[Rfam]
The family of this 94-nucleotide RNA sequence from Paenibacillus swuensis is "c-di-GMP-I-GGC riboswitch aptamer". The source organism's lineage runs through Bacteria, Bacilli, Caryophanales, Paenibacillaceae and Paenibacillus. It scores 73 bits against the family's covariance model. Pairs were carried over by alignment from the consensus structure, which is taken from published work.
RNA sequence: UACGAAAAAGGCAAACCUGUCGAAAGGCGGGGACGCAAAGCCGCGGGUCUACAGCUCAAAAAUCAUUUGAGUCAUGACAGCCGGGUUGCCAGAG
Number, nucleotide and partner (000 for none) at each position: 001u094002a000003c000004g090005a000006a000007a000008a000009a000010g000011g036012c035013a000014a000015a000016c031017c030018u029019g028020u027021c026022g000023a000024a000025a000026g021027g020028c019029g018030g017031g016032g000033a000034c080035g012036c011037a000038a000039a087040g086041c085042c084043g000044c083045g082046g081047g078048u077049c076050u000051a000052c000053a000054g000055c000056u000057c000058a000059a000060a000061a000062a000063u000064c000065a000066u000067u000068u000069g000070a000071g000072u000073c000074a000075u000076g049077a048078c047079a000080g034081c046082c045083g044084g042085g041086u040087u039088g000089c000090c004091a000092g000093a000094g001